The family of this 148-nucleotide RNA from Fusarium culmorum is "Small nucleolar RNA snR80". The literature on the family includes a 2004 paper in Nucleic Acids Res by Schattner et al., "Genome-wide searching for pseudouridylation guide snoRNAs: analysis of the Saccharomyces cerevisiae genome". By type it is an H/ACA-box small nucleolar RNA. The base pairs follow the family's consensus structure, which was predicted with WAR. Clan: SNORA28 clan. Its family is annotated with nucleolus and RNA processing in the Gene Ontology.
RNA sequence: GCACCCUUGACUCACUCUGAGAUCUGCCAUCCUACUCCGUGGCUUAUUUCUAUUUUUGUUCAAGGAAGAGGAAUGAAGCCCAAUACUCACCGCGAUAUACUAGCUUUAAGCUCUUGUGGAUAUAGCGGUCCAUCAUCACCGGCUACAU
Numbered sequence: 001g002c003a004c005c006c007u008u009g010a011c012u013c014a015c016u017c018u019g020a021g022a023u024c025u026g027c028c029a030u031c032c033u034a035c036u037c038c039g040u041g042g043c044u045u046a047u048u049u050c051u052a053u054u055u056u057u058g059u060u061c062a063a064g065g066a067a068g069a070g071g072a073a074u075g076a077a078g079c080c081c082a083a084u085a086c087u088c089a090c091c092g093c094g095a096u097a098u099a100c101u102a103g104c105u106u107u108a109a110g111c112u113c114u115u116g117u118g119g120a121u122a123u124a125g126c127g128g129u130c131c132a133u134c135a136u137c138a139c140c141g142g143c144u145a146c147a148u
Base pairs, nucleotide, nucleotide: 007063008062009061019050020049021048022047023046026043027042028041077144078143079142080141090128091127092126093125095123096122097121100119101118
Dot-bracket structure: ......(((.........(((((..(((............)))..)))))..........))).............((((.........((((.(((..((................)).))).))))............))))....